[Rfam]
RNA sequence: ACUGGAAGGUUGGCAUCUUCUGUAAUCACGCUUCUGUGAGGUCGGAAUGUGGAAUGGUCUGAGGCUGGGGGUUCUGAGUGGUGGAAUUCCUCAUGUUGACGGAACGUCCGCACUAAGCUUGCCGUCAAUAUGGGUACCAUGGAGGAGUCCAAGGUAUUCAGGUUGGCUAAGGAGGGGUGUAGGGGUGAAAACCAGCAGCAAAGAGCCCCCGCGGUAAGCAGUAGUGGGAUAGCGUACCGGAGUGUGGAGCCAUUGCCAGCCCAGCCAAUAUGAUUGGACGACAUUCUUU
Number, nucleotide and partner (000 for none) at each position: 001a042002c041003u040004g021005g020006a019007a018008g017009g016010u015011u000012g000013g000014c000015a010016u009017c008018u007019u006020c005021u004022g000023u000024a000025a000026u039027c038028a037029c000030g000031c000032u000033u000034c000035u000036g000037u028038g027039a026040g003041g002042u001043c000044g287045g286046a285047a284048u283049g282050u281051g279052g000053a000054a000055u276056g275057g274058u273059c272060u000061g000062a000063g266064g265065c264066u263067g262068g261069g260070g000071g000072u000073u000074c259075u258076g257077a000078g256079u255080g254081g253082u252083g000084g251085a000086a000087u248088u247089c000090c246091u000092c244093a243094u242095g000096u240097u000098g000099a000100c239101g238102g237103a000104a235105c234106g233107u232108c228109c227110g000111c226112a225113c224114u223115a222116a000117g219118c218119u217120u216121g215122c214123c213124g212125u211126c165127a164128a163129u162130a000131u160132g159133g158134g157135u156136a155137c154138c153139a000140u151141g150142g149143a148144g000145g000146a000147g000148u143149c142150c141151a140152a000153g138154g137155u136156a135157u134158u133159c132160a131161g000162g129163u128164u127165g126166g000167c171168u000169a000170a000171g167172g000173a000174g209175g208176g207177g206178u205179g000180u000181a000182g000183g000184g193185g192186u191187g000188a000189a000190a000191a186192c185193c184194a000195g000196c000197a000198g000199c000200a000201a000202a000203g000204a000205g178206c177207c176208c175209c174210c000211g125212c124213g123214g122215u121216a120217a119218g118219c117220a000221g000222u115223a114224g113225u112226g111227g109228g108229a000230u000231a000232g107233c106234g105235u104236a000237c102238c101239g100240g096241a000242g094243u093244g092245u000246g090247g088248a087249g000250c000251c084252a082253u081254u080255g079256c078257c076258a075259g074260c069261c068262c067263a066264g065265c064266c063267a000268a000269u000270a000271u000272g059273a058274u057275u056276g055277g000278a000279c051280g000281a050282c049283a048284u047285u046286c045287u044288u000289u000